[Rfam]
RNA sequence: GGAUGUGAGGGUGAUCUGGCUGUGACAUCUGUUACCCCAUUGAUCACCAGGGUUGAUUUAGCUGAUCCUGCUGGCUGGGCGGGUGCCCCCUUCCUCCCUCACUAUCCCAUGGGAGUCCAUCCUGAACCUGCAUGCUUGGUUGAAGAGGACAAUAUACCCUGAUAGAGGAGGAUCAUCCUUCAGUCAAGGGUAUAUAAGUAGCUACGCUCCCCUGCUAGAACCUCCAAACAAACUCUCAAGGUCCAUUUGUAGAAGAAUGUAGUGUAGUCAAACUUCCAAGACUCCAGACAUAUCCAAAUGAGGCACUGCAUGUGGCAGUCUGUCUUUCCUU
Numbered sequence: 001g002g003a004u005g006u007g008a009g010g011g012u013g014a015u016c017u018g019g020c021u022g023u024g025a026c027a028u029c030u031g032u033u034a035c036c037c038c039a040u041u042g043a044u045c046a047c048c049a050g051g052g053u054u055g056a057u058u059u060a061g062c063u064g065a066u067c068c069u070g071c072u073g074g075c076u077g078g079g080c081g082g083g084u085g086c087c088c089c090c091u092u093c094c095u096c097c098c099u100c101a102c103u104a105u106c107c108c109a110u111g112g113g114a115g116u117c118c119a120u121c122c123u124g125a126a127c128c129u130g131c132a133u134g135c136u137u138g139g140u141u142g143a144a145g146a147g148g149a150c151a152a153u154a155u156a157c158c159c160u161g162a163u164a165g166a167g168g169a170g171g172a173u174c175a176u177c178c179u180u181c182a183g184u185c186a187a188g189g190g191u192a193u194a195u196a197a198g199u200a201g202c203u204a205c206g207c208u209c210c211c212c213u214g215c216u217a218g219a220a221c222c223u224c225c226a227a228a229c230a231a232a233c234u235c236u237c238a239a240g241g242u243c244c245a246u247u248u249g250u251a252g253a254a255g256a257a258u259g260u261a262g263u264g265u266a267g268u269c270a271a272a273c274u275u276c277c278a279a280g281a282c283u284c285c286a287g288a289c290a291u292a293u294c295c296a297a298a299u300g301a302g303g304c305a306c307u308g309c310a311u312g313u314g315g316c317a318g319u320c321u322g323u324c325u326u327u328c329c330u331u
Stems, first nucleotide, its partner, number of pairs: 001108002005102007013093002018090002024087001026085008035074002037070001042067004047061001116171002118168001120166002122139004128134001140162003147158002201273001203271001207267002210264001212262004222255002225252001228250005296331002300326005305319005

The record is a 331-nucleotide RNA sequence from Orycteropus afer, which matches "7SK RNA" in Rfam. Rfam's curators write: 7SK was discovered as an abundant small nuclear RNA in the mid-70s but a possible function has only recently been suggested. Two independent studies have found that 7SK RNA binds the CDK9/cyclin T complex (known as elongation factor P-TEFb). The family is grouped with related families in Rfam's "7SK clan". On this family, see Blencowe, Curr Biol 2002: "Transcription: surprising role for an elusive small nuclear RNA". It is annotated as a non-coding RNA gene. The match comes from Rfam's covariance-model search (292 bits).